[Rfam]
RNA sequence: GUUCCCUUUCCUUACUCCAGGAACUGCAGUUGUCGUGCAGUGUCUUGGCAUUGACUGGGGAUAGAAUAAAUGAAGCUCCUAUACCCGUUUCUAUGGAUUGAAUUUCCUUUAGAAACGGGCGUGUGAGCUUACAAA
Numbered sequence: 001g002u003u004c005c006c007u008u009u010c011c012u013u014a015c016u017c018c019a020g021g022a023a024c025u026g027c028a029g030u031u032g033u034c035g036u037g038c039a040g041u042g043u044c045u046u047g048g049c050a051u052u053g054a055c056u057g058g059g060g061a062u063a064g065a066a067u068a069a070a071u072g073a074a075g076c077u078c079c080u081a082u083a084c085c086c087g088u089u090u091c092u093a094u095g096g097a098u099u100g101a102a103u104u105u106c107c108u109u110u111a112g113a114a115a116c117g118g119g120c121g122u123g124u125g126a127g128c129u130u131a132c133a134a135a
Stems, first nucleotide, its partner, number of pairs: 003061005011053001017048006023041005074129003078125001089114005095107003
The family of this 135-nucleotide sequence from Lepisosteus oculatus is "Small nucleolar RNA SNORA49".
It scores 54 bits against the family's covariance model.
Rfam 15.1 lists 722 matches to the family in 550 species.
About the family: The snoRNA ACA49 has no identified RNA target. NB genomic sequence 1-nt different from published.